[Rfam]
This 90-nucleotide sequence from Momordica charantia belongs to the Rfam family "Small nucleolar RNA snoR27". Its family is annotated with nucleolus and RNA processing in the Gene Ontology. The source organism's lineage runs through Eukaryota, Viridiplantae, Embryophyta, fabids and Momordica. Its Rfam clan is "snR68 clan". It scores 70 bits against the family's covariance model. It is annotated as a C/D-box small nucleolar RNA.
RNA sequence: CUUGGAUCAAUGAUGUUAAUGGAAAACUGCGUUAUCUAUCUGCAAGUUCCUAUCUGGAGUUGAAGAUUAUAGUGUUUUCUGAGAUCCAAC
Dot-bracket structure: .((((((............................................................................)))))).